[Rfam]
RNA: DUF2800 RNA
RNA sequence: GCCUUGGGCAUGGCAUAAAACUGCUCACCGCCAGACACCGCAUCACUUGAUCACUGAUGGCUCAACGGUAUCUGACGGACAACUGAAUACUGUAGCUGCCUUUUGAGCGGGUUUGCUGCAAUCCGAAACGGAGAACUCCGUUAGGACUGCGGUCGGUUUCCUAUGCUCAUUUUUCGGCAGCACC
Numbered sequence: 001g002c003c004u005u006g007g008g009c010a011u012g013g014c015a016u017a018a019a020a021c022u023g024c025u026c027a028c029c030g031c032c033a034g035a036c037a038c039c040g041c042a043u044c045a046c047u048u049g050a051u052c053a054c055u056g057a058u059g060g061c062u063c064a065a066c067g068g069u070a071u072c073u074g075a076c077g078g079a080c081a082a083c084u085g086a087a088u089a090c091u092g093u094a095g096c097u098g099c100c101u102u103u104u105g106a107g108c109g110g111g112u113u114u115g116c117u118g119c120a121a122u123c124c125g126a127a128a129c130g131g132a133g134a135a136c137u138c139c140g141u142u143a144g145g146a147c148u149g150c151g152g153u154c155g156g157u158u159u160c161c162u163a164u165g166c167u168c169a170u171u172u173u174u175c176g177g178c179a180g181c182a183c184c
Stems, first nucleotide, its partner, number of pairs: 028078003032074001034072002037069004041059005060108006093180001095178004115153005128141005